[Rfam]
RNA sequence: AUAUGUUUUGUUGAUGGUCCUCUAACCAUUAAUUAAGUCUUUUUCCAUAUGUUUGAGAAUAUUAGGAUAUGCUAGCACUUCUUGUGGUUAGAUGACCAUCAACAAACACAUU
Numbered sequence: 001a002u003a004u005g006u007u008u009u010g011u012u013g014a015u016g017g018u019c020c021u022c023u024a025a026c027c028a029u030u031a032a033u034u035a036a037g038u039c040u041u042u043u044u045c046c047a048u049a050u051g052u053u054u055g056a057g058a059a060u061a062u063u064a065g066g067a068u069a070u071g072c073u074a075g076c077a078c079u080u081c082u083u084g085u086g087g088u089u090a091g092a093u094g095a096c097c098a099u100c101a102a103c104a105a106a107c108a109c110a111u112u
Stems, first nucleotide, its partner, number of pairs: 005107004010103010021092009031082001
RNA: MIR827 microRNA precursor family
Organism: Beta vulgaris